RNA sequence: CCCGGUGCCUAUGACGGUCUGUCUGAAAACCAGCCCCUGGUGGGGCAGACCUGAGAACCUGGCGUG
Dot-bracket structure: (.((...........(((((((((......(((...)))...)))))))))...........)).)
RNA: Selenocysteine insertion sequence 1